[Rfam]
Rfam assigns this 354-nucleotide RNA sequence from Hathewaya proteolytica to the family "transfer-messenger RNA". Pairs were carried over by alignment from the consensus structure, which is taken from published work. Rfam describes the family as follows. Bacterial tmRNA, also known as 10Sa RNA or SsrA, is named for its dual tRNA and mRNA-like properties. Its role is to liberate the mRNA from a stalled ribosome. To accomplish this part of the tmRNA is used as a reading frame that ends in a translation stop signal. The broken mRNA is replaced in the ribosome by the tmRNA and translation of the tmRNA leads to addition of a proteolysis tag to the incomplete protein enabling recognition by a protease. The source organism's lineage runs through Bacteria, Bacillota, Clostridia, Eubacteriales and Hathewaya proteolytica.
RNA sequence: GGGGGCGUACUUGGCUUCGACGGGGGUACGUAGCGUUUAGUAAGCGGGUCGAGGAAAUUCUGGAGCCUCGUUAAUCAGCUAGAAACUUAAAGAUAAACGCAGAAGAUAAUUUUGCUUUAGCAGCUUAGUCUGCUACGUUCUACCCGAGAGUCCCACGGCUUGGGAUAGGGCGUCGACUAGUGGGGACCCGAGCUUAGCAAAGCUUUGAGCUAAGAACGGAAUUAAUGAAGCUACUGAAACUAGAAGCCUGUUUAUGGGCGUCUAGUAGAGGGAAUGUUAAAUCAUAAAAUACACUCGUAGAAAGCUAAAUGGGACGAUCUUCGGACAGGGGUUCGACUCCCCUCGCCUCCACCA
Number, nucleotide and partner (000 for none) at each position: 001g350002g349003g348004g347005g346006c345007g344008u000009a000010c000011u000012u000013g000014g000015c000016u000017u000018c000019g000020a000021c323022g322023g321024g320025g319026g318027u317028a000029c000030g000031u000032a000033g000034c311035g310036u309037u308038u307039a306040g305041u304042a000043a000044g000045c297046g296047g295048g294049u293050c070051g069052a068053g067054g066055a000056a000057a000058u084059u083060c082061u081062g080063g079064a000065g000066c054067c053068u052069c051070g050071u000072u000073a000074a000075u000076c000077a000078g000079c063080u062081a061082g060083a059084a058085a000086c000087u000088u000089a000090a000091a000092g000093a000094u000095a000096a000097a000098c000099g000100c000101a000102g000103a000104a000105g000106a000107u000108a000109a000110u000111u000112u000113u000114g000115c000116u000117u000118u135119a134120g133121c132122a131123g130124c000125u000126u000127a000128g000129u000130c123131u122132g121133c120134u119135a118136c172137g171138u170139u169140c168141u167142a000143c164144c163145c162146g161147a160148g159149a000150g000151u185152c184153c183154c182155a181156c180157g000158g000159c148160u147161u146162g145163g144164g143165a000166u000167a141168g140169g139170g138171c137172g136173u000174c000175g000176a000177c000178u000179a000180g156181u155182g154183g153184g152185g151186a000187c000188c000189c218190g217191a000192g000193c214194u213195u212196a211197g210198c000199a000200a000201a232202g231203c230204u229205u228206u227207g000208a000209g000210c197211u196212a195213a194214g193215a000216a000217c190218g189219g000220a000221a000222u000223u000224a000225a000226u000227g206228a205229a204230g203231c202232u201233a000234c271235u270236g000237a000238a000239a266240c265241u264242a263243g262244a000245a000246g259247c258248c257249u000250g000251u288252u287253u286254a000255u000256g282257g248258g247259c246260g000261u000262c243263u242264a241265g240266u239267a000268g000269a000270g235271g234272g000273a000274a000275u000276g000277u000278u000279a000280a000281a000282u256283c000284a000285u000286a253287a252288a251289a000290u000291a000292c000293a049294c048295u047296c046297g045298u000299a000300g000301a000302a000303a000304g041305c040306u039307a038308a037309a036310u035311g034312g000313g000314a000315c000316g000317a027318u026319c025320u024321u023322c022323g021324g000325a000326c000327a343328g342329g341330g340331g339332u000333u000334c000335g000336a000337c000338u000339c331340c330341c329342c328343u327344c007345g006346c005347c004348u003349c002350c001351a000352c000353c000354a000